[Rfam]
RNA sequence: CCUCUACUUUAACGUGGAGGCAUUUGCUGUGACGUGGCAAAAGUAAGUGCUUCCAUGUUUGAGUGUGG
Number, nucleotide and partner (000 for none) at each position: 001c000002c068003u067004c000005u065006a064007c063008u062009u000010u000011a059012a058013c057014g056015u055016g054017g053018a052019g051020g050021c049022a048023u047024u046025u045026g044027c043028u042029g000030u000031g000032a000033c000034g000035u000036g000037g000038c000039a000040a000041a000042a028043g027044u026045a025046a024047g023048u022049g021050c020051u019052u018053c017054c016055a015056u014057g013058u012059u011060u000061g000062a008063g007064u006065g005066u000067g003068g002
mir-302 microRNA precursor family: a 68-nucleotide RNA sequence from Prolemur simus. The organism belongs to Prolemur, within Eukaryota. A search with the family's covariance model found it, with a score of 74 bits.